Notes
Shown here is a 199-nucleotide RNA from Zea mays, a member of the family "MIR1435 microRNA precursor family". The organism belongs to Zea, within Eukaryota.
RNA sequence: UGGCUUUGUUCCAAGUCAAACUUCUCUAACUUUGAUCAGGUUUUUUUAGAAAAAAUAUUAGCAUCUCAAGUUCAAAUAAAUGCACUUUCAAAAUAUAUUUCAUGUAGAAUUAAUGAAACAAAUUUGAAGUUAUAGAUGUUGAUGCACUUAUCCGUAGACUUGGUCAAAGUAAAAAAAGUUUGACUUAGGAGAAAGUCAA
Numbered sequence: 001u002g003g004c005u006u007u008g009u010u011c012c013a014a015g016u017c018a019a020a021c022u023u024c025u026c027u028a029a030c031u032u033u034g035a036u037c038a039g040g041u042u043u044u045u046u047u048a049g050a051a052a053a054a055a056u057a058u059u060a061g062c063a064u065c066u067c068a069a070g071u072u073c074a075a076a077u078a079a080a081u082g083c084a085c086u087u088u089c090a091a092a093a094u095a096u097a098u099u100u101c102a103u104g105u106a107g108a109a110u111u112a113a114u115g116a117a118a119c120a121a122a123u124u125u126g127a128a129g130u131u132a133u134a135g136a137u138g139u140u141g142a143u144g145c146a147c148u149u150a151u152c153c154g155u156a157g158a159c160u161u162g163g164u165c166a167a168a169g170u171a172a173a174a175a176a177a178g179u180u181u182g183a184c185u186u187a188g189g190a191g192a193a194a195g196u197c198a199a
Stems, first nucleotide, its partner, number of pairs: 005194003009190001011188001013186011025174001031168005047154001049152002052149002056144003060140007069131001072127006
About this RNA: The family has 3 seed sequences and 1,765 matches in Rfam 15.1.